The family of this 207-nucleotide sequence from Allobosea sp. PAMC 26642 is "Bradyrhizobiaceae sRNA BjrC174". Pairs were carried over by alignment from the consensus structure. It scores 55 bits against the family's covariance model. For this family Rfam cites "Small RNAs of the Bradyrhizobium/Rhodopseudomonas lineage and their analysis" (Madhugiri et al., RNA Biol, 2012).

Nucleotides: 207
Stems, first nucleotide, its partner, number of pairs: 036170002038052001041049002085168002088165004093159010107145002110142006124133002182203008
Number, partner (000 for none) and nucleotide at each position: 001000a002000u003000c004000a005000c006000g007000g008000c009000u010000u011000c012000g013000u014000c015000a016000g017000a018000u019000g020000c021000g022000c023000c024000g025000c026000a027000u028000u029000u030000u031000c032000g033000c034000c035000c036170c037169g038052a039000a040000c041049g042048c043000g044000c045000c046000c047000a048042g049041c050000c051000a052038u053000g054000g055000c056000c057000g058000u059000g060000u061000u062000g063000c064000c065000c066000c067000g068000c069000u070000c071000a072000a073000c074000u075000c076000c077000u078000g079000a080000u081000c082000g083000u084000u085168g086167c087000c088165u089164c090163g091162a092000c093159g094158g095157c096156c097155c098154g099153g100152c101151u102150u103000u104000g105000c106000u107145g108144g109000u110142c111141u112140c113139c114138g115137g116000a117000u118000u119000u120000g121000u122000c123000a124133g125132c126000c127000c128000c129000c130000c131000a132125g133124c134000c135000c136000c137115c138114c139113g140112g141111a142110g143000u144108c145107u146000u147000g148000g149000c150102g151101g152100g153099c154098c155097g156096g157095g158094c159093c160000a161000a162091u163090c164089g165088a166000u167086g168085u169037c170036g171000a172000g173000g174000c175000u176000a177000c178000c179000u180000u181000a182203c183202g184201g185200c186199c187198g188197g189196c190000g191000c192000c193000c194000g195000c196189g197188c198187u199186g200185g201184c202183c203182g204000u205000u206000u207000u